[Rfam]
RNA sequence: UUGUCACCUGGAGUUCUUCUCAAAUCACUUCAGUAGCUAUCUCAUACUACCUCAUUGUUGCAUUGCCACUGUUUUAAAAGUGUGCAUUGCAGGGAUAUAGAGCUUUGCAUAGUGAAGUGUUUGGGGGAACUCUGGGUGGCAA
Dot-bracket structure: ....(((((.((((((((((.(((.(((((((.((..........................................................................)).)))))))))))))))))))).)))))....
Numbered sequence: 001u002u003g004u005c006a007c008c009u010g011g012a013g014u015u016c017u018u019c020u021c022a023a024a025u026c027a028c029u030u031c032a033g034u035a036g037c038u039a040u041c042u043c044a045u046a047c048u049a050c051c052u053c054a055u056u057g058u059u060g061c062a063u064u065g066c067c068a069c070u071g072u073u074u075u076a077a078a079a080g081u082g083u084g085c086a087u088u089g090c091a092g093g094g095a096u097a098u099a100g101a102g103c104u105u106u107g108c109a110u111a112g113u114g115a116a117g118u119g120u121u122u123g124g125g126g127g128a129a130c131u132c133u134g135g136g137u138g139g140c141a142a
Stems, first nucleotide, its partner, number of pairs: 005138005011132010022122003026119007034111002
Description: Shown here is a 142-nucleotide RNA from Triticum turgidum, a member of the family "mir-395 microRNA precursor family". mir-395 was identified in both Arabidopsis thaliana and Oryza sativa computationally and was later experimentally verified. mir-395 is thought to target mRNAs coding for ATP sulphurylases. The mature sequence is excised from the 3' arm of the hairpin. The family's consensus secondary structure was predicted with PFOLD. For this family Rfam cites "Computational Identification of Plant MicroRNAs and Their Targets, Including a Stress-Induced miRNA" (Jones-Rhoades and Bartel, Mol Cell, 2004). The family has 25 seed sequences and 2,798 matches in Rfam 15.1.